[Rfam]
Notes
The family of this 142-nucleotide RNA sequence from Desulfocucumis palustris is "c-di-AMP riboswitch aptamer (ydaO/yuaA leader)". The organism belongs to Desulfocucumis, within Bacteria. About the family: This family represents a conserved RNA structure found upstream of the ydaO and yuaA genes in Bacillus subtilis and related genes in other bacteria.
RNA sequence: CUGAAAAAACAGCUGAAUCCCAAUAAAAAGUUGGGUACGGAGGAACCAAACAUCAGGGGUGAAUCCAUAAUUCUUUUAUGGUAGGUUUUGUCUUUUUACCGAACCCGUCAGCUAACUCCGGAAGCGUAAAAAGAAAGGAGUA
Numbered sequence: 001c002u003g004a005a006a007a008a009a010c011a012g013c014u015g016a017a018u019c020c021c022a023a024u025a026a027a028a029a030g031u032u033g034g035g036u037a038c039g040g041a042g043g044a045a046c047c048a049a050a051c052a053u054c055a056g057g058g059g060u061g062a063a064u065c066c067a068u069a070a071u072u073c074u075u076u077u078a079u080g081g082u083a084g085g086u087u088u089u090g091u092c093u094u095u096u097u098a099c100c101g102a103a104c105c106c107g108u109c110a111g112c113u114a115a116c117u118c119c120g121g122a123a124g125c126g127u128a129a130a131a132a133g134a135a136a137g138g139a140g141u142a
Base pairs, nucleotide, nucleotide: 012125013124014123019035020034021033022032023031038120039119040118041117042116047056057106058105059104065081066080067079068078084100085099086098